[Rfam]
RNA: Small nucleolar RNA SNORA71
Organism: Gouania willdenowi
RNA sequence: CCCUGUAUCGAAAGGUGAUCAUGGCGUCCUCGUCGCCUGGUCAUUAUUUUACUACAGGAAAAACAAACUGUGAGCCUUUCCCUGUGUUUGCUGGACAUCACUUCCUGUUGAACCCUGGUGCUCGCAUACA
Numbered sequence: 001c002c003c004u005g006u007a008u009c010g011a012a013a014g015g016u017g018a019u020c021a022u023g024g025c026g027u028c029c030u031c032g033u034c035g036c037c038u039g040g041u042c043a044u045u046a047u048u049u050u051a052c053u054a055c056a057g058g059a060a061a062a063a064c065a066a067a068c069u070g071u072g073a074g075c076c077u078u079u080c081c082c083u084g085u086g087u088u089u090g091c092u093g094g095a096c097a098u099c100a101c102u103u104c105c106u107g108u109u110g111a112a113c114c115c116u117g118g119u120g121c122u123c124g125c126a127u128a129c130a
Base pairs, nucleotide, nucleotide: 002058003057004056005055006054007053014045015044016043017042018041019040020039021038023037024036025035026034067127069126070125071124072123073122074121075120086113087112088111089110090109091107093105094104095103